The family of this 123-nucleotide RNA sequence from Bucco capensis is "Small nucleolar RNA ACA64". The base pairs follow the family's consensus structure, which was predicted with WAR. The match comes from Rfam's covariance-model search (43 bits).
[Rfam]
RNA sequence: ACAGUCUGAAAAUCACUUGGGGUCUCAUGUCUCCUGAUGCGAUAACUGUGCCGACAGCAGAGAGAGCAUUAAACACAUUGCCCACAGCAAAAUGUGGGGAGUGAUACCCAUGUUCCUAUAAUC
Numbered sequence: 001a002c003a004g005u006c007u008g009a010a011a012a013u014c015a016c017u018u019g020g021g022g023u024c025u026c027a028u029g030u031c032u033c034c035u036g037a038u039g040c041g042a043u044a045a046c047u048g049u050g051c052c053g054a055c056a057g058c059a060g061a062g063a064g065a066g067c068a069u070u071a072a073a074c075a076c077a078u079u080g081c082c083c084a085c086a087g088c089a090a091a092a093u094g095u096g097g098g099g100a101g102u103g104a105u106a107c108c109c110a111u112g113u114u115c116c117u118a119u120a121a122u123c
Base pairs, nucleotide, nucleotide: 006048008046010043014039015038019034020033021032022031065114066113067112068111069110076103077102078101079100083096084095085094